Source information
The record is an 84-nucleotide RNA sequence from Actinoplanes siamensis, which matches "Glycine riboswitch aptamer" in Rfam. The match comes from Rfam's covariance-model search (42 bits). Rfam links the family to the GO term glycine biosynthetic process. The source organism's lineage runs through Bacteria, Actinomycetota, Actinomycetes, Micromonosporales and Actinoplanes.
RNA sequence: CUCUGGAAAGUCAGCGCCGCGAGGCGCUGCGCCCAAGGUGCAAGCCGCUCUCCGCGGUGAACCUCUCAGGCAUCGAUGACAGAG
Number, nucleotide and partner (000 for none) at each position: 001c084002u083003c082004u081005g080006g000007a000008a000009a000010g000011u000012c029013a028014g027015c026016g000017c000018c000019g000020c000021g000022a000023g000024g000025c000026g015027c014028u013029g012030c000031g071032c070033c069034c000035a066036a000037g000038g065039u000040g063041c000042a000043a000044g058045c057046c056047g055048c000049u000050c000051u000052c000053c000054g000055c047056g046057g045058u044059g000060a000061a000062c000063c040064u000065c038066u035067c000068a000069g033070g032071c031072a000073u000074c000075g000076a000077u000078g000079a000080c005081a004082g003083a002084g001